[Rfam]
RNA sequence: GGCCUCCCUCUGUGGGGCUAUCGAUCUCAGGGCCCCCAGAUCAACUGCCCCGCAGAGGGAGGCC
Numbered sequence: 001g002g003c004c005u006c007c008c009u010c011u012g013u014g015g016g017g018c019u020a021u022c023g024a025u026c027u028c029a030g031g032g033c034c035c036c037c038a039g040a041u042c043a044a045c046u047g048c049c050c051c052g053c054a055g056a057g058g059g060a061g062g063c064c
Stems, first nucleotide, its partner, number of pairs: 001064018021044001023042005030037002